[Rfam]
The record is a 93-nucleotide RNA sequence from Nicotiana sylvestris, which matches "mir-156 microRNA precursor family" in Rfam. This family represents the plant microRNA (miRNA) precursor mir-156. A search with the family's covariance model found it, with a score of 77 bits. Rfam 15.1 lists 1,401 matches to the family in 221 species. Taxonomically the source falls in Nicotiana (Eukaryota, Streptophyta, Euphyllophyta, Spermatophyta).
RNA sequence: GUGACAGAAGAGAGUGAGCACAUAUGGUGUUUUCUUGCAUGAUAUGUUUAUCCCAUGCCUGAAGCUAUGCGUGCUCACAGCUCUAUCUGUCAC
Numbered sequence: 001g002u003g004a005c006a007g008a009a010g011a012g013a014g015u016g017a018g019c020a021c022a023u024a025u026g027g028u029g030u031u032u033u034c035u036u037g038c039a040u041g042a043u044a045u046g047u048u049u050a051u052c053c054c055a056u057g058c059c060u061g062a063a064g065c066u067a068u069g070c071g072u073g074c075u076c077a078c079a080g081c082u083c084u085a086u087c088u089g090u091c092a093c
Base pairs, nucleotide, nucleotide: 001093002092003091004090005089006088007087008086010083011082012081014078015077016076017075018074019073020072021071023069024068025067026066027065